[Rfam]
The family of this 120-nucleotide RNA sequence from Clostridium sp. chh4-2 is "FMN riboswitch aptamer (RFN element)".
RNA sequence: UAAGUUCUUCGGGGCAGGGUGUAAUUCCCUACCGGCGGUCAAAGUCCGCGACCCACUUUUUGUGGCUGAUCUGGUGAAAUUCCGGAACCGACAGUAUAGUCUGGAUGAGAGAAGAAAUUG
Numbered sequence: 001u002a003a004g005u006u007c008u009u010c011g012g013g014g015c016a017g018g019g020u021g022u023a024a025u026u027c028c029c030u031a032c033c034g035g036c037g038g039u040c041a042a043a044g045u046c047c048g049c050g051a052c053c054c055a056c057u058u059u060u061u062g063u064g065g066c067u068g069a070u071c072u073g074g075u076g077a078a079a080u081u082c083c084g085g086a087a088c089c090g091a092c093a094g095u096a097u098a099g100u101c102u103g104g105a106u107g108a109g110a111g112a113a114g115a116a117a118u119u120g
Stems, first nucleotide, its partner, number of pairs: 003118001005116006017029003031100002033090002035049004044088002053065002070086005092103003